[Rfam]
RNA sequence: GGCAUGGGGAAUGCGAUCUCCCCCAAGAGGCGACAUGCCCGAAACAUCGCGUCCCGGGCUGACCACGCGGACGCAUCAUG
Numbered sequence: 001g002g003c004a005u006g007g008g009g010a011a012u013g014c015g016a017u018c019u020c021c022c023c024c025a026a027g028a029g030g031c032g033a034c035a036u037g038c039c040c041g042a043a044a045c046a047u048c049g050c051g052u053c054c055c056g057g058g059c060u061g062a063c064c065a066c067g068c069g070g071a072c073g074c075a076u077c078a079u080g
Stems, first nucleotide, its partner, number of pairs: 005025005010019001049074006
Shown here is an 80-nucleotide RNA, a member of the family "chrB-a RNA". Rfam 15.1 lists 347 matches to the family in 339 species. Rfam's curators put it in the seed alignment. The family's consensus secondary structure is taken from published work.